[Rfam]
RNA sequence: AUACUUGCCUGAUUGGGAAGAGACCAUCAUUGUGAAGGUGGUUUUGCCAGGAUGAGGCUUAGCCAUUAUAUUCUAGAUGUUCUGACCUCUGUGAUGUCUCCAAAUGUGGUAAACUCAACUAUAUAAUCUAUGCUAGCAGAUGACUGUGUUCAUCCUGUCCCCUG
Numbered sequence: 001a002u003a004c005u006u007g008c009c010u011g012a013u014u015g016g017g018a019a020g021a022g023a024c025c026a027u028c029a030u031u032g033u034g035a036a037g038g039u040g041g042u043u044u045u046g047c048c049a050g051g052a053u054g055a056g057g058c059u060u061a062g063c064c065a066u067u068a069u070a071u072u073c074u075a076g077a078u079g080u081u082c083u084g085a086c087c088u089c090u091g092u093g094a095u096g097u098c099u100c101c102a103a104a105u106g107u108g109g110u111a112a113a114c115u116c117a118a119c120u121a122u123a124u125a126a127u128c129u130a131u132g133c134u135a136g137c138a139g140a141u142g143a144c145u146g147u148g149u150u151c152a153u154c155c156u157g158u159c160c161c162c163u164g
Stems, first nucleotide, its partner, number of pairs: 012122002015119001016048002019045003023042005049090003054086001056083002060079002063076001092117003095113001097111001099109002138163002142159002146155001148153001

Shown here is a 164-nucleotide RNA sequence from Otolemur garnettii, a member of the family "U1 spliceosomal RNA". By type it is a spliceosomal small nuclear RNA. U1 is a small nuclear RNA (snRNA) component of the spliceosome (involved in pre-mRNA splicing). A search with the family's covariance model found it, with a score of 75 bits. The source organism's lineage runs through Eukaryota, Chordata, Craniata, Teleostomi and Otolemur. The family's consensus secondary structure is taken from published work.